[Rfam]
RNA: Small nucleolar RNA SNORD103/SNORD85
RNA sequence: UCUGGCAGUGAUGAUCAACUUGCCCUCACUGAGAACAAGGUUCUGUAAUGAGAAUCUCUGUUACGGACUCGUUCUGAGCCAGA
Dot-bracket structure: ((((((.......................................................................))))))